[Rfam]
S4-Flavobacteria ribosomal protein leader: a 34-nucleotide RNA from Myroides guanonis. Rfam classes the family as a cis-regulatory leader. The family is grouped with related families in Rfam's "Ribosomal Protein S4 Leader clan".
RNA sequence: GAUUAUCGGAGGAAAGAGACCUGAAUUCAUAAUC
Numbered sequence: 001g002a003u004u005a006u007c008g009g010a011g012g013a014a015a016g017a018g019a020c021c022u023g024a025a026u027u028c029a030u031a032a033u034c
Base pairs, nucleotide, nucleotide: 001034002033003032004031005030006029008028010022011021012020